U4atac minor spliceosomal RNA: a 129-nucleotide sequence from Saimiri boliviensis. It scores 78 bits against the family's covariance model. The family's consensus secondary structure is taken from published work. Rfam's curators write: U4atac is an essential component of the minor U12-type spliceosome complex which is required for removal of the rarer class of eukaryotic introns (AT-AC, U12-type). NCBI's taxonomy places the organism under Eukaryota, Platyrrhini, Cebidae, Saimiriinae, Saimiri boliviensis. By type it is a spliceosomal small nuclear RNA.
RNA sequence: ACCAUCCUUUUCCUGGGGUUGCGCUACUACUGUCCAAUGAGUGCCUAGUGAGAGCAGUACAGCUAACUCCUGCACAACACACCAAAAUUAGCUAGAGCUUUACUUUACCUUGGUGCAGUUUUUGGAAAA
Numbered sequence: 001a002c003c004a005u006c007c008u009u010u011u012c013c014u015g016g017g018g019u020u021g022c023g024c025u026a027c028u029a030c031u032g033u034c035c036a037a038u039g040a041g042u043g044c045c046u047a048g049u050g051a052g053a054g055c056a057g058u059a060c061a062g063c064u065a066a067c068u069c070c071u072g073c074a075c076a077a078c079a080c081a082c083c084a085a086a087a088u089u090a091g092c093u094a095g096a097g098c099u100u101u102a103c104u105u106u107a108c109c110u111u112g113g114u115g116c117a118g119u120u121u122u123u124g125g126a127a128a129a
Stems, first nucleotide, its partner, number of pairs: 006018004021063002029058005035052001041049002087114004093107005